Shown here is a 115-nucleotide RNA sequence from Triticum urartu, a member of the family "Small nucleolar RNA Z118/Z121/Z120". It scores 56 bits against the family's covariance model. It is annotated as a C/D-box small nucleolar RNA. A reference for the family is Chen et al. (2003), "The high diversity of snoRNAs in plants: identification and comparative study of 120 snoRNA genes from Oryza sativa", Nucleic Acids Res.
RNA sequence: UGUAUGCAGUGCUGUGAUGAAUCACAAGGCCGGUAUCUGAGUAAGUUGCCUCUUGAAGAGGACUCCUUCCUUGAUUGUACACCCUAAACUGAUCAUAUAUUAUUCUGAGCAGACA
Numbered sequence: 001u002g003u004a005u006g007c008a009g010u011g012c013u014g015u016g017a018u019g020a021a022u023c024a025c026a027a028g029g030c031c032g033g034u035a036u037c038u039g040a041g042u043a044a045g046u047u048g049c050c051u052c053u054u055g056a057a058g059a060g061g062a063c064u065c066c067u068u069c070c071u072u073g074a075u076u077g078u079a080c081a082c083c084c085u086a087a088a089c090u091g092a093u094c095a096u097a098u099a100u101u102a103u104u105c106u107g108a109g110c111a112g113a114c115a
Stems, first nucleotide, its partner, number of pairs: 001115003005111003041070001043068003